[Rfam]
RNA sequence: UGCCCUGCCGGAUGGCGUAAAAAGACGGAACCGAACAAUCAUGUGGGAGCUACCCCGUAAAAAGUGUA
Numbered sequence: 001u002g003c004c005c006u007g008c009c010g011g012a013u014g015g016c017g018u019a020a021a022a023a024g025a026c027g028g029a030a031c032c033g034a035a036c037a038a039u040c041a042u043g044u045g046g047g048a049g050c051u052a053c054c055c056c057g058u059a060a061a062a063a064g065u066g067u068a
Base pairs, nucleotide, nucleotide: 001017002016003015004014008028009027010026044057045056046055047054